RNA sequence: GUGAGCGGGAGGCCAGGGCAUGGCAGGGGGAGCUGCAAGGCCAUCGGAGAGGCCUCAGAGUCUGAGCCCCGUCCUCCUGCAG
Numbered sequence: 001g002u003g004a005g006c007g008g009g010a011g012g013c014c015a016g017g018g019c020a021u022g023g024c025a026g027g028g029g030g031a032g033c034u035g036c037a038a039g040g041c042c043a044u045c046g047g048a049g050a051g052g053c054c055u056c057a058g059a060g061u062c063u064g065a066g067c068c069c070c071g072u073c074c075u076c077c078u079g080c081a082g
Stems, first nucleotide, its partner, number of pairs: 005080008014071001016069004028063003033058003038055005